[Rfam]
RNA: Mammalian CPEB3 ribozyme
RNA sequence: UUGCAAGUUCCAGGUCACAGCAGAAGCACUUAUGGCAUGGCCCGUCAGAUUCCAACGAAUCUGCAAAUUCUGUU
Numbered sequence: 001u002u003g004c005a006a007g008u009u010c011c012a013g014g015u016c017a018c019a020g021c022a023g024a025a026g027c028a029c030u031u032a033u034g035g036c037a038u039g040g041c042c043c044g045u046c047a048g049a050u051u052c053c054a055a056c057g058a059a060u061c062u063g064c065a066a067a068u069u070c071u072g073u074u
Stems, first nucleotide, its partner, number of pairs: 013042004019074007026038001046063007
Dot-bracket structure: ............[[[[..((((((((...........)]]]]...(((((((....)))))))....)))))))